[Rfam]
This 80-nucleotide RNA from Dinothrombium tinctorium belongs to the Rfam family "mir-263 microRNA precursor family". Clan: mir-182 clan. Pairs were carried over by alignment from the consensus structure, which was predicted with RNAalifold.
RNA sequence: UGACCUUUAUCCUUGGCACUGGAAGAAUUCACCGAUGGAUUCGACACUCGUGGGUUCUUGGGUGCCAAAGACGAAGGAAU
Numbered sequence: 001u002g003a004c005c006u007u008u009a010u011c012c013u014u015g016g017c018a019c020u021g022g023a024a025g026a027a028u029u030c031a032c033c034g035a036u037g038g039a040u041u042c043g044a045c046a047c048u049c050g051u052g053g054g055u056u057c058u059u060g061g062g063u064g065c066c067a068a069a070g071a072c073g074a075a076g077g078a079a080u
Stems, first nucleotide, its partner, number of pairs: 004077005010071001013068006020061001022059001025056002029053004034048001